[Rfam]
RNA sequence: ACGAUGUUCCGCUGUCUCCUAGAGGGCAAGAGCAUUAG
Numbered sequence: 001a002c003g004a005u006g007u008u009c010c011g012c013u014g015u016c017u018c019c020u021a022g023a024g025g026g027c028a029a030g031a032g033c034a035u036u037a038g
Base pairs, nucleotide, nucleotide: 003036004035005034006033007032008031009030013028014027015025016024017023018022
RNA: Ribosomal protein L19 leader